[Rfam]
RNA sequence: GCCACUAAUUUGCCGAAUUUCGCCGAUGGCGGAACCGGGGAACCCAGUUAUGGGGUGAAUCAGUAGGUGUCUACUGUAGGGUGACCUCUCUCGCGCCCGAACCCGUCAGCUAACCUCGGAGGCAUACGAGGGGGAUAUU
Numbered sequence: 001g002c003c004a005c006u007a008a009u010u011u012g013c014c015g016a017a018u019u020u021c022g023c024c025g026a027u028g029g030c031g032g033a034a035c036c037g038g039g040g041a042a043c044c045c046a047g048u049u050a051u052g053g054g055g056u057g058a059a060u061c062a063g064u065a066g067g068u069g070u071c072u073a074c075u076g077u078a079g080g081g082u083g084a085c086c087u088c089u090c091u092c093g094c095g096c097c098c099g100a101a102c103c104c105g106u107c108a109g110c111u112a113a114c115c116u117c118g119g120a121g122g123c124a125u126a127c128g129a130g131g132g133g134g135a136u137a138u139u
Base pairs, nucleotide, nucleotide: 011124012123013122014121018034019033020032021031022030023029035119036118037117038116039115040114045052046051053104054103055102061076062075063074064073079098080097081096082095
Record summary
c-di-AMP riboswitch aptamer (ydaO/yuaA leader): a 139-nucleotide sequence from Sulfobacillus acidophilus. About the family: This family represents a conserved RNA structure found upstream of the ydaO and yuaA genes in Bacillus subtilis and related genes in other bacteria. Taxonomically the source falls in Sulfobacillus acidophilus (Bacteria, Bacillati, Bacillota, Eubacteriales).